[Rfam]
Shown here is a 119-nucleotide RNA from Mitsuaria sp. WAJ17, a member of the family "Glycine riboswitch aptamer". The match comes from Rfam's covariance-model search (50 bits). Lineage of the source: Bacteria > Pseudomonadati > Pseudomonadota > Betaproteobacteria > Roseateles. Clan: Glycine riboswitch clan. Rfam links the family to the GO term glycine biosynthetic process.
RNA sequence: AAGCCGAAUGCUGGAGAGUGAAGCCAGGCCCCGAGCCCGGCUUCCGCCGAAGGAGCAAGGCCGCAGAUCCAAAUGUCCUGCGGCUGAAUCUCUCAGGUACCGAGGACAGCGGGAGCGGC
Numbered sequence: 001a002a003g004c005c006g007a008a009u010g011c012u013g014g015a016g017a018g019u020g021a022a023g024c025c026a027g028g029c030c031c032c033g034a035g036c037c038c039g040g041c042u043u044c045c046g047c048c049g050a051a052g053g054a055g056c057a058a059g060g061c062c063g064c065a066g067a068u069c070c071a072a073a074u075g076u077c078c079u080g081c082g083g084c085u086g087a088a089u090c091u092c093u094c095a096g097g098u099a100c101c102g103a104g105g106a107c108a109g110c111g112g113g114a115g116c117g118g119c
Base pairs, nucleotide, nucleotide: 009111010110011109012108013107020044021043022042023041024040025039046098047097048096049094050093053092054091055090059085060084061083062082063081064080065079066078